[Rfam]
RNA sequence: CCAGACGGUUGGACGGCCGCUGUUCUGCCUUUCGGGGCAGGAUGGAGGAAAGUCCGGGCUCCACGGAAAUACGGUGCCGGCUAACGGCCGGCGGGGGCGACCCCAGGGACAGUGCCACAGAAAGCAAACCGCCUGUGCAAGGCGCAAGCCUUCCACGGGCAAGGGUGAAAGGGUGCGGUAAGAGCGCACCGCCGCUCCGGUAACGGCGCGGGCAGGGUAAACCCCACCGGGAGCAAGACCGAAUAGGGGUGGCCGGCGGCGUAUCAUGGCAACAUGAUGCGUGACGCGAGGGCAUUUCCGCCCCGUCGCCCGGGUUGGUCGCGUGAGGCGCUCUGCGAAGGGCGUCCCAGAGGAAUGGCCGUCCAAGGCCGCGCAAGCGGCCCGGACAGAACCCGGCUUACAGACCGUCUGGCAAU
Number, nucleotide and partner (000 for none) at each position: 001c412002c411003a410004g409005a408006c407007g406008g405009u404010u403011g401012g363013a362014c361015g360016g359017c358018c357019g000020c045021u044022g043023u042024u041025c040026u039027g038028c037029c000030u000031u000032u000033c000034g000035g000036g000037g028038c027039a026040g025041g024042a023043u022044g021045g020046a000047g000048g000049a000050a399051a398052g397053u000054c396055c395056g394057g393058g392059c233060u232061c231062c230063a000064c000065g000066g000067a000068a297069a296070u000071a000072c229073g228074g227075u226076g225077c091078c090079g089080g088081c087082u000083a000084a000085c000086g000087g081088c080089c079090g078091g077092c106093g104094g103095g102096g101097g000098c000099g000100a000101c096102c095103c094104c093105a000106g092107g224108g223109a000110c000111a000112g222113u221114g218115c217116c216117a000118c000119a000120g000121a000122a000123a000124g000125c000126a000127a000128a000129c164130c163131g160132c159133c158134u157135g156136u155137g154138c000139a152140a151141g150142g149143c148144g000145c000146a000147a000148g143149c142150c141151u140152u139153c000154c137155a136156c135157g134158g133159g132160c131161a000162a000163g130164g129165g000166u000167g000168a000169a000170a000171g000172g190173g189174u188175g187176c186177g185178g000179u000180a000181a000182g000183a000184g000185c177186g176187c175188a174189c173190c172191g213192c211193c210194g209195c208196u000197c206198c205199g204200g000201u000202a000203a000204c199205g198206g197207c000208g195209c194210g193211g192212g000213c191214a000215g000216g116217g115218u114219a000220a000221a113222c112223c108224c107225c076226a075227c074228c073229g072230g062231g061232a060233g059234c000235a000236a000237g320238a319239c318240c317241g000242a000243a000244u000245a000246g000247g311248g310249g309250u308251g307252g306253c000254c000255g000256g000257c000258g000259g000260c000261g000262u000263a000264u000265c000266a000267u000268g000269g000270c000271a000272a000273c000274a000275u000276g000277a000278u000279g000280c000281g000282u000283g000284a000285c000286g000287c000288g000289a000290g303291g302292g301293c300294a000295u000296u069297u068298c000299c000300g293301c292302c291303c290304c000305g000306u252307c251308g250309c249310c248311c247312g000313g000314g000315u000316u000317g240318g239319u238320c237321g000322c000323g000324u000325g000326a000327g346328g345329c344330g343331c342332u341333c340334u339335g000336c000337g000338a000339a334340g333341g332342g331343c330344g329345u328346c327347c000348c000349a000350g000351a000352g000353g000354a000355a000356u000357g018358g017359c016360c015361g014362u013363c012364c000365a000366a000367g000368g000369c000370c000371g000372c000373g000374c000375a000376a000377g000378c000379g000380g000381c000382c000383c000384g000385g000386a000387c000388a000389g000390a000391a000392c058393c057394c056395g055396g054397c052398u051399u050400a000401c011402a000403g010404a009405c008406c007407g006408u005409c004410u003411g002412g001413c000414a000415a000416u000
Shown here is a 416-nucleotide RNA from Acidisoma silvae, a member of the family "Bacterial RNase P class A".
About the family: Ribonuclease P (RNase P) is a ubiquitous endoribonuclease, found in archaea, bacteria and eukarya as well as chloroplasts and mitochondria.
Lineage of the source: Bacteria > Pseudomonadati > Alphaproteobacteria > Acetobacterales > Acidisoma.